[Rfam]
RNA sequence: AAUUUCACAGGCGAUGACGUUCGCCAUUAAACACUGCUUUGAUUCAGUUGAUAACGUCUGCCUUAUA
Numbered sequence: 001a002a003u004u005u006c007a008c009a010g011g012c013g014a015u016g017a018c019g020u021u022c023g024c025c026a027u028u029a030a031a032c033a034c035u036g037c038u039u040u041g042a043u044u045c046a047g048u049u050g051a052u053a054a055c056g057u058c059u060g061c062c063u064u065a066u067a
Base pairs, nucleotide, nucleotide: 010025011024012023013022016058017057018056019055020054021053033048034047035046036045

Shown here is a 67-nucleotide RNA sequence from Sporolactobacillus shoreae, a member of the family "Fluoride riboswitch aptamer (crcB RNA motif)". On this family, see Baker et al., Science 2012: "Widespread genetic switches and toxicity resistance proteins for fluoride". Taxonomically the source falls in Sporolactobacillus (Bacteria, Bacillati, Bacillota, Sporolactobacillaceae). The match comes from Rfam's covariance-model search (48 bits). Pairs were carried over by alignment from the consensus structure, which is taken from published work.